[Rfam]
RNA sequence: GCCCCGUCUGCCCAGUGUUCAGACUACCUGUUCAGGAUUCAUCGUUUGUACAGUAGUCUGCACAUUGGUUAGGCUGAGCG
Numbered sequence: 001g002c003c004c005c006g007u008c009u010g011c012c013c014a015g016u017g018u019u020c021a022g023a024c025u026a027c028c029u030g031u032u033c034a035g036g037a038u039u040c041a042u043c044g045u046u047u048g049u050a051c052a053g054u055a056g057u058c059u060g061c062a063c064a065u066u067g068g069u070u071a072g073g074c075u076g077a078g079c080g
Base pairs, nucleotide, nucleotide: 012068013067014066015065016064017063018062020060021059022058023057024056025055026054028053029052030051031050033048034047
Dot-bracket structure: ...........(((((((.(((((((.((((.((............)).))))))))))).)))))))............
Rfam assigns this 80-nucleotide RNA from Triplophysa tibetana to the family "mir-199 microRNA precursor family". This family consists of the microRNA (miRNA) precursor mir-199 which appears to be specific to humans. Lineage of the source: Eukaryota > Vertebrata > Teleostomi > Nemacheilidae > Triplophysa.